[Rfam]
RNA sequence: CCUGCGGCGGAAUGUAUUUUCCGAAAAUGGGCUGUUGCGCAGCGUGACCAUGCUGCGCGAGGACGACUUUACGUCCUCUGACAGAGCGCUCCGGCUUUCCGGUGCCGCUCCCUGCACGCCACGUCCCCAGAAGGGACGUGGCGCGUAGGUCA
Numbered sequence: 001c002c003u004g005c006g007g008c009g010g011a012a013u014g015u016a017u018u019u020u021c022c023g024a025a026a027a028u029g030g031g032c033u034g035u036u037g038c039g040c041a042g043c044g045u046g047a048c049c050a051u052g053c054u055g056c057g058c059g060a061g062g063a064c065g066a067c068u069u070u071a072c073g074u075c076c077u078c079u080g081a082c083a084g085a086g087c088g089c090u091c092c093g094g095c096u097u098u099c100c101g102g103u104g105c106c107g108c109u110c111c112c113u114g115c116a117c118g119c120c121a122c123g124u125c126c127c128c129a130g131a132a133g134g135g136a137c138g139u140g141g142c143g144c145g146u147a148g149g150u151c152a
Base pairs, nucleotide, nucleotide: 008023009022010021011020012019035080037058038057039056040055041054042053043052044051045050059078060077061076062075063074064073065072084110085109086108087107088106091102092101093100094099111149112148113147114146115145117143118142119141120140121139122138123137124136125135126134127133
Dot-bracket structure: .......(((((......)))))...........(.(((((((((....)))))))))(((((((......))))))).)...(((((..((((....))))...)))))(((((.(((((((((((.....))))))))))).)))))...